Rfam assigns this 213-nucleotide sequence from Enterobacter sp. 638 to the family "Enterobacterial sRNA STnc180". The base pairs follow the family's consensus structure, which was predicted with RNAalifold. The family's RNA type in Rfam is small RNA.
RNA sequence: UUAAUAAAUACACAUCAGUAAUAAAGAAUCGGGUUAUACCCCGACCGAGCAAAUAAAUAGAAUAUCUGGUGUCCGAUGAUGAAUACUCUACAAAACGUUAAAUACUGGUCGUGGAUGGGCGCGUUUACCGUCUCCACUCUGUUCUGGUGUCAGCUUAUCUGGCUGGCCCUAAACUAAAUCUAAAACCUCGCUGCGGCGAGGUUUUUUGUUUUA
Numbered sequence: 001u002u003a004a005u006a007a008a009u010a011c012a013c014a015u016c017a018g019u020a021a022u023a024a025a026g027a028a029u030c031g032g033g034u035u036a037u038a039c040c041c042c043g044a045c046c047g048a049g050c051a052a053a054u055a056a057a058u059a060g061a062a063u064a065u066c067u068g069g070u071g072u073c074c075g076a077u078g079a080u081g082a083a084u085a086c087u088c089u090a091c092a093a094a095a096c097g098u099u100a101a102a103u104a105c106u107g108g109u110c111g112u113g114g115a116u117g118g119g120c121g122c123g124u125u126u127a128c129c130g131u132c133u134c135c136a137c138u139c140u141g142u143u144c145u146g147g148u149g150u151c152a153g154c155u156u157a158u159c160u161g162g163c164u165g166g167c168c169c170u171a172a173a174c175u176a177a178a179u180c181u182a183a184a185a186c187c188u189c190g191c192u193g194c195g196g197c198g199a200g201g202u203u204u205u206u207u208g209u210u211u212u213a
Base pairs, nucleotide, nucleotide: 010072011071012070013069018063019062029044030043031042032041033040110147113139116136117135118134119133121131150166151165152164154162155161184203185202186201187200188199189198190197191196